Rfam assigns this 76-nucleotide RNA sequence from Prolemur simus to the family "mir-320 microRNA precursor family".
Nucleotides: 076
Stems, first nucleotide, its partner, number of pairs: 014059005021052005029044006
Number, partner (000 for none) and nucleotide at each position: 001000a002000g003000c004000a005000u006000a007000a008000u009000a010000g011000g012000c013000c014059u015058u016057c017056u018055c019000u020000u021052c022051c023050c024049g025048g026000u027000u028000c029044u030043u031042c032041c033040c034039g035000g036000a037000g038000u039034c040033g041032g042031g043030a044029a045000a046000a047000g048025c049024u050023g051022g052021g053000u054000u055018g056017a057016g058015a059014g060000g061000g062000c063000a064000a065000a066000a067000a068000a069000a070000a071000a072000a073000a074000a075000a076000a
Overview: Pairs were carried over by alignment from the consensus structure, which was predicted with RNAalifold.